RNA: c-di-AMP riboswitch aptamer (ydaO/yuaA leader)
Organism: Kribbella turkmenica
RNA sequence: CAGGCACCUGUGCUCCCCUCGAAAACCAUGGCAGGGGUGGGGGACCCAGGAGGUUGGGUCUCGACCGUGAGUGGUCGGAACCCUGGGGUGAAGUCCGCGGGAGCGGACCGGGCGAUGAAUCCCAGCCCGAACCCGACAGCUAACUCCGCAGGCGUCGGGAGACCAA
Numbered sequence: 001c002a003g004g005c006a007c008c009u010g011u012g013c014u015c016c017c018c019u020c021g022a023a024a025a026c027c028a029u030g031g032c033a034g035g036g037g038u039g040g041g042g043g044a045c046c047c048a049g050g051a052g053g054u055u056g057g058g059u060c061u062c063g064a065c066c067g068u069g070a071g072u073g074g075u076c077g078g079a080a081c082c083c084u085g086g087g088g089u090g091a092a093g094u095c096c097g098c099g100g101g102a103g104c105g106g107a108c109c110g111g112g113c114g115a116u117g118a119a120u121c122c123c124a125g126c127c128c129g130a131a132c133c134c135g136a137c138a139g140c141u142a143a144c145u146c147c148g149c150a151g152g153c154g155u156c157g158g159g160a161g162a163c164c165a166a
Base pairs, nucleotide, nucleotide: 001034037149038148039147040146041145042144047085048084049083050082086134087133088132094107095106096105097104110128111127112126113125